[Rfam]
A member of the RNA family "Lysine riboswitch aptamer" from Shewanella sediminis, 220 nucleotides long. NCBI's taxonomy places the organism under Bacteria, Pseudomonadati, Pseudomonadota, Gammaproteobacteria, Shewanella sediminis. Its family is annotated with lysine biosynthetic process in the Gene Ontology. For this family Rfam cites "Riboswitches Control Fundamental Biochemical Pathways in Bacillus subtilis and Other Bacteria" (Mandal et al., Cell, 2003). The family's consensus secondary structure is taken from published work.
RNA sequence: CUGAGAAGUAGAGGUGCAUUAAAUAUCAGUAGUGAUAGCCAGGGUGAUUCCGUUUAUCUAUCAUGAAAGGAUUUGAUGCCGAAGUAGUAAAACAUAUCAAGGUUUACUGCUGGGGCUGACAUCGAAUAGGUGCGGCACUGCCAUAGUAUUUCUUAUCCGGAAGAUAAGAAGAUUUUAUACCUUUUAACAUAGGGUAUUGCUAUGGAGCGCUACUGAUAGG
Numbered sequence: 001c002u003g004a005g006a007a008g009u010a011g012a013g014g015u016g017c018a019u020u021a022a023a024u025a026u027c028a029g030u031a032g033u034g035a036u037a038g039c040c041a042g043g044g045u046g047a048u049u050c051c052g053u054u055u056a057u058c059u060a061u062c063a064u065g066a067a068a069g070g071a072u073u074u075g076a077u078g079c080c081g082a083a084g085u086a087g088u089a090a091a092a093c094a095u096a097u098c099a100a101g102g103u104u105u106a107c108u109g110c111u112g113g114g115g116c117u118g119a120c121a122u123c124g125a126a127u128a129g130g131u132g133c134g135g136c137a138c139u140g141c142c143a144u145a146g147u148a149u150u151u152c153u154u155a156u157c158c159g160g161a162a163g164a165u166a167a168g169a170a171g172a173u174u175u176u177a178u179a180c181c182u183u184u185u186a187a188c189a190u191a192g193g194g195u196a197u198u199g200c201u202a203u204g205g206a207g208c209g210c211u212a213c214u215g216a217u218a219g220g
Stems, first nucleotide, its partner, number of pairs: 007214005016079009032064007083111009093101001112139002115136004120132004141205007